[Rfam]
RNA: SAM riboswitch aptamer (S box leader)
RNA sequence: CUCUUAUCGAGAGUGGUGGAGGGAUGUGCCCUAUGAAGCCCGGCAACCGUCUUAGGAUAUGGUGCCAAGUCACAUGAAAUCUUUUGGAUUUCUGAAGAUGAGAG
Numbered sequence: 001c002u003c004u005u006a007u008c009g010a011g012a013g014u015g016g017u018g019g020a021g022g023g024a025u026g027u028g029c030c031c032u033a034u035g036a037a038g039c040c041c042g043g044c045a046a047c048c049g050u051c052u053u054a055g056g057a058u059a060u061g062g063u064g065c066c067a068a069g070u071c072a073c074a075u076g077a078a079a080u081c082u083u084u085u086g087g088a089u090u091u092c093u094g095a096a097g098a099u100g101a102g103a104g
Stems, first nucleotide, its partner, number of pairs: 001104008013041001015040003021031003025074004042066004047062002049058003070096001076092005
Dot-bracket structure: ((((((((....(.(((...(((.[[[[)))......))))((((.(((((....)))..))))))...(]]]].(((((.......)))))...)))))))))